[Rfam]
RNA sequence: UGCGUUUUUGCAGCGGAGCUCGACCGCCCCGCGACGAAAUGAUCGCCUUCAUCGACACCCACCGCGAUCAGUUCGGGGUUGAGCUCAUCUGUCGUGUCCUGCGGGCAGCAAUCCCG
Numbered sequence: 001u002g003c004g005u006u007u008u009u010g011c012a013g014c015g016g017a018g019c020u021c022g023a024c025c026g027c028c029c030c031g032c033g034a035c036g037a038a039a040u041g042a043u044c045g046c047c048u049u050c051a052u053c054g055a056c057a058c059c060c061a062c063c064g065c066g067a068u069c070a071g072u073u074c075g076g077g078g079u080u081g082a083g084c085u086c087a088u089c090u091g092u093c094g095u096g097u098c099c100u101g102c103g104g105g106c107a108g109c110a111a112u113c114c115c116g
Base pairs, nucleotide, nucleotide: 013027014026015025016024074116075115076114077113078112085111088105089104090103091102092101094099